[Rfam]
RNA sequence: UUUAGAGGAGGUUCGAUUAAGAUCGCUGCAUCAUGCAGCAACAUCGAACCAACCCACGUCGUGUGGG
Number, nucleotide and partner (000 for none) at each position: 001u000002u000003u000004a000005g000006a000007g000008g000009a000010g000011g049012u048013u047014c046015g045016a044017u043018u000019a000020a000021g000022a000023u000024c000025g039026c038027u037028g036029c035030a000031u000032c000033a000034u000035g029036c028037a027038g026039c025040a000041a000042c000043a017044u016045c015046g014047a013048a012049c011050c000051a000052a000053c067054c066055c065056a064057c063058g000059u000060c000061g000062u000063g057064u056065g055066g054067g053
RNA: Bacillaceae-1 RNA
Organism: Pontibacillus yanchengensis